The record is a 121-nucleotide RNA sequence from Arsenicicoccus cauae, which matches "SAM riboswitch aptamer (S box leader)" in Rfam. Rfam links the family to the GO term regulation of gene expression. A reference for the family is Montange and Batey (2006), "Structure of the S-adenosylmethionine riboswitch regulatory mRNA element", Nature. From the family's description: The SAM riboswitch is found upstream of a number of genes which code for proteins involved in methionine or cysteine biosynthesis in Gram-positive bacteria. The SAM riboswitch acts at the level of transcription termination control. The predicted structure consists of a complex stem-loop region followed by a single stem loop terminator region. An alternative and mutually exclusive form involves bases in the 3' segment of helix 1 with those in the 5' region of helix 5 to form a structure termed the anti-terminator form. A search with the family's covariance model found it, with a score of 64 bits.
RNA sequence: CAUCCAUCACGACCGGCUGAGGGACAGGCCCGACGACGCCGGGGCAACCGCCCGAGGGGGAGACCCCGAGGGUCAGGUGCCAAGUCCUGCGGGGGCCUCGCGGCCCACCGGCAGAUGGGUC
Numbered sequence: 001c002a003u004c005c006a007u008c009a010c011g012a013c014c015g016g017c018u019g020a021g022g023g024a025c026a027g028g029c030c031c032g033a034c035g036a037c038g039c040c041g042g043g044g045c046a047a048c049c050g051c052c053c054g055a056g057g058g059g060g061a062g063a064c065c066c067c068g069a070g071g072g073u074c075a076g077g078u079g080c081c082a083a084g085u086c087c088u089g090c091g092g093g094g095g096c097c098u099c100g101c102g103g104c105c106c107a108c109c110g111g112c113a114g115a116u117g118g119g120u121c
Base pairs, nucleotide, nucleotide: 002120003119004118005117006116007115008114013042014041015040016039017038021031022030023029025089026088027087028086043081044080045079046078048077049076050073051072052071053070085113090110091109092108094106095105